RNA sequence: UUUGGCAUUCGGCUUGCGCGCCAUGAUGCCGUUACCCACAGCAUGUAAAAGGUGCGUUUUACCUAAACCGGUGCCGCCAUA
Dot-bracket structure: ....((..(.((...(((.((......)))))..)).)..))........((((.((...(((......)))))))))...
Annotation
This 81-nucleotide RNA sequence from Cedecea neteri belongs to the Rfam family "antisense RNA of dnaA mRNA". The family's consensus secondary structure was predicted with RNAfold. NCBI's taxonomy places the organism under Bacteria, Pseudomonadota, Gammaproteobacteria, Enterobacterales, Cedecea. It scores 87 bits against the family's covariance model. A reference for the family is Dadzie et al. (2013), "Identification and characterization of a cis-encoded antisense RNA associated with the replication process of Salmonella enterica serovar Typhi", PLoS One.